[Rfam]
Small nucleolar RNA U19: a 127-nucleotide sequence from Beta vulgaris. On this family, see Marker et al., Curr Biol 2002: "Experimental RNomics: identification of 140 candidates for small non-messenger RNAs in the plant Arabidopsis thaliana". Lineage of the source: Eukaryota > Euphyllophyta > Spermatophyta > Betoideae > Beta vulgaris. Gene Ontology terms of the family: nucleolus and RNA processing. Pairs were carried over by alignment from the consensus structure, which was predicted with WAR. The family's RNA type in Rfam is H/ACA-box small nucleolar RNA.
RNA sequence: UAUUGGCUUAGUUACGGGGCACAAAUUAGCUUGGGUUUAAUGUUUUGUUUGAUCCUUUGUGCGAAGGCCUUUUGAGUGGACUAUUCUUAUAUUAUAGAUAUUGUCCUUCAAUCAGCCUUGGACAUUU
Number, nucleotide and partner (000 for none) at each position: 001u000002a000003u000004u021005g020006g000007c018008u017009u016010a000011g000012u000013u000014a000015c000016g009017g008018g007019g000020c005021a004022c000023a000024a000025a000026u000027u000028a000029g000030c000031u000032u000033g000034g054035g053036u052037u051038u000039a000040a000041u000042g000043u000044u000045u000046u000047g000048u000049u000050u000051g037052a036053u035054c034055c000056u000057u000058u000059g000060u000061g000062c121063g000064a119065a118066g117067g116068c115069c000070u000071u000072u111073u110074g109075a000076g108077u000078g106079g105080a104081c103082u000083a101084u100085u000086c000087u000088u000089a000090u000091a000092u000093u000094a000095u000096a000097g000098a000099u000100a084101u083102u000103g081104u080105c079106c078107u000108u076109c074110a073111a072112u000113c000114a000115g068116c067117c066118u065119u064120g000121g062122a000123c000124a000125u000126u000127u000